[Rfam]
RNA sequence: AGGACAGGGGGGUCUCUGCCGUUCGGCAGGGCCUGUCCGAGAAAGGCCGCGCAGACACGUGGCCGGUGGUUGUCGCUCGGGGGUGAUCGCCG
Dot-bracket structure: .(((((((.....(((((((....))))))))))))))......(((((((......)))))))............................
The family of this 92-nucleotide RNA sequence is "che1 RNA". Rfam classes the family as a small RNA. The match comes from Rfam's covariance-model search (92 bits).